[Rfam]
RNA sequence: GUAUCCGUAUCUACGUUUGACCGUUCGUCUUAUUUGAAAAUUUUAUGAAAAGAUUAAAAAAAUAGUCACGCAUAAAGUAAUAUUCAUGUUUUAUCAUCUAAUAACAAUAAAAAUACUAAUCAUUAAAAAUUUUCAAAUAAGACGGACGGUUAAACGUUGGACACGAAUAC
Numbered sequence: 001g002u003a004u005c006c007g008u009a010u011c012u013a014c015g016u017u018u019g020a021c022c023g024u025u026c027g028u029c030u031u032a033u034u035u036g037a038a039a040a041u042u043u044u045a046u047g048a049a050a051a052g053a054u055u056a057a058a059a060a061a062a063u064a065g066u067c068a069c070g071c072a073u074a075a076a077g078u079a080a081u082a083u084u085c086a087u088g089u090u091u092u093a094u095c096a097u098c099u100a101a102u103a104a105c106a107a108u109a110a111a112a113a114u115a116c117u118a119a120u121c122a123u124u125a126a127a128a129a130u131u132u133u134c135a136a137a138u139a140a141g142a143c144g145g146a147c148g149g150u151u152a153a154a155c156g157u158u159g160g161a162c163a164c165g166a167a168u169a170c
Stems, first nucleotide, its partner, number of pairs: 010161004014156001016154018
Dot-bracket structure: .........(((((.((((((((((((((((((.......................................................................................................)))))))))))))))))).).)))).........

The family of this 170-nucleotide sequence from Oryza sativa is "MIR812 microRNA precursor family". It is one of the family's seed sequences.